[Rfam]
RNA sequence: ACUGGUUGAAAAUUACCAGCAGUUUCGCCUGUGGCUGCGGGUGAGAUUCUGCACCCAGCGCCACCAGGGGCCUCACCUCACCGCCGACUGCCUUUGUGUGAGUAGCUGAAACCCAGGCCCCAACAGGC
Numbered sequence: 001a002c003u004g005g006u007u008g009a010a011a012a013u014u015a016c017c018a019g020c021a022g023u024u025u026c027g028c029c030u031g032u033g034g035c036u037g038c039g040g041g042u043g044a045g046a047u048u049c050u051g052c053a054c055c056c057a058g059c060g061c062c063a064c065c066a067g068g069g070g071c072c073u074c075a076c077c078u079c080a081c082c083g084c085c086g087a088c089u090g091c092c093u094u095u096g097u098g099u100g101a102g103u104a105g106c107u108g109a110a111a112c113c114c115a116g117g118c119c120c121c122a123a124c125a126g127g128c
Base pairs, nucleotide, nucleotide: 005052006051008049009048010047013044014043015042016041021036022035023034024033067121069119070118071117072116073115078109079108080107082105087099088098